[Rfam]
RNA sequence: AGUAUCCACUAGGGGCGCCUCCACGGGCUGAGAUAAGGCGAAACGCCUUGGUCCCUUUGAACCUGAUCUGGGUUAUACCAGCGUAGGAAAGUGGGAAUAUGCCCGG
Numbered sequence: 001a002g003u004a005u006c007c008a009c010u011a012g013g014g015g016c017g018c019c020u021c022c023a024c025g026g027g028c029u030g031a032g033a034u035a036a037g038g039c040g041a042a043a044c045g046c047c048u049u050g051g052u053c054c055c056u057u058u059g060a061a062c063c064u065g066a067u068c069u070g071g072g073u074u075a076u077a078c079c080a081g082c083g084u085a086g087g088a089a090a091g092u093g094g095g096a097a098u099a100u101g102c103c104c105g106g
Base pairs, nucleotide, nucleotide: 006094007093008092009091010090011056012055013054014053016050017028018027019026020025035049036048037047038046039045062087063086064085065084068081069080070079071078
The family of this 106-nucleotide RNA from Paenibacillus darwinianus is "TPP riboswitch aptamer (THI element)". Vitamin B(1) in its active form thiamin pyrophosphate (TPP) is an essential coenzyme that is synthesised by coupling of pyrimidine and thiazole moieties in bacteria. The match comes from Rfam's covariance-model search (82 bits). Taxonomically the source falls in Paenibacillus (Bacteria, Bacilli, Caryophanales, Paenibacillaceae). The base pairs follow the family's consensus structure, which is taken from published work.